[Rfam]
The record is a 79-nucleotide RNA from Ornithorhynchus anatinus, which matches "mir-95 microRNA precursor family" in Rfam. Lineage of the source: Eukaryota > Bilateria > Sarcopterygii > Prototheria > Ornithorhynchus.

RNA sequence: CACACAGUAAGCGCUCAAUAAAUACGAUUGAAUGAAUGAAUUAUUCAUUAAAUCGUAUUUAUUGAGCGCUUACUGUGUG
Numbered sequence: 001c002a003c004a005c006a007g008u009a010a011g012c013g014c015u016c017a018a019u020a021a022a023u024a025c026g027a028u029u030g031a032a033u034g035a036a037u038g039a040a041u042u043a044u045u046c047a048u049u050a051a052a053u054c055g056u057a058u059u060u061a062u063u064g065a066g067c068g069c070u071u072a073c074u075g076u077g078u079g
Base pairs, nucleotide, nucleotide: 001079002078003077004076007073008072009071010070011069012068014066015065016064017063018062019061021059022058023057024056025055026054027053028051029050030049031048033047034046035045